[Rfam]
RNA sequence: CGUGGUGUGAGAAAAAAUAAGUAGAAGAGCAUUUGGGGUCGAAACAUGGCGAGACUCCCGAAUGCUCUUCUCA
Numbered sequence: 001c002g003u004g005g006u007g008u009g010a011g012a013a014a015a016a017a018u019a020a021g022u023a024g025a026a027g028a029g030c031a032u033u034u035g036g037g038g039u040c041g042a043a044a045c046a047u048g049g050c051g052a053g054a055c056u057c058c059c060g061a062a063u064g065c066u067c068u069u070c071u072c073a
Stems, first nucleotide, its partner, number of pairs: 015069001026068005033061005038055003
The record is a 73-nucleotide RNA sequence from cyanobacterium endosymbiont of Rhopalodia gibberula, which matches "Cyano-1 RNA" in Rfam. Lineage of the source: Bacteria > Bacillati > Cyanobacteriota. Rfam classes the family as a small RNA.